[Rfam]
RNA sequence: CUCUUAUCAAGAGAGGUGGAGGGACUGGCCCGAUGAAACCCGGCAACCAACGUGGAACGGAAACGUGAUACGCAAGGUGCCAAUUCCAACAAAGUGUAGAAGCACUUUGAAAGAUAAGAG
Numbered sequence: 001c002u003c004u005u006a007u008c009a010a011g012a013g014a015g016g017u018g019g020a021g022g023g024a025c026u027g028g029c030c031c032g033a034u035g036a037a038a039c040c041c042g043g044c045a046a047c048c049a050a051c052g053u054g055g056a057a058c059g060g061a062a063a064c065g066u067g068a069u070a071c072g073c074a075a076g077g078u079g080c081c082a083a084u085u086c087c088a089a090c091a092a093a094g095u096g097u098a099g100a101a102g103c104a105c106u107u108u109g110a111a112a113g114a115u116a117a118g119a120g
Stems, first nucleotide, its partner, number of pairs: 001120008013041001015040003021031003026088003042081004047077002051072003085112001090109006
The family of this 120-nucleotide RNA from Salipaludibacillus agaradhaerens is "SAM riboswitch aptamer (S box leader)". The organism belongs to Salipaludibacillus, within Bacteria. Rfam's curators write: The SAM riboswitch is found upstream of a number of genes which code for proteins involved in methionine or cysteine biosynthesis in Gram-positive bacteria. The SAM riboswitch acts at the level of transcription termination control. The predicted structure consists of a complex stem-loop region followed by a single stem loop terminator region. An alternative and mutually exclusive form involves bases in the 3' segment of helix 1 with those in the 5' region of helix 5 to form a structure termed the anti-terminator form.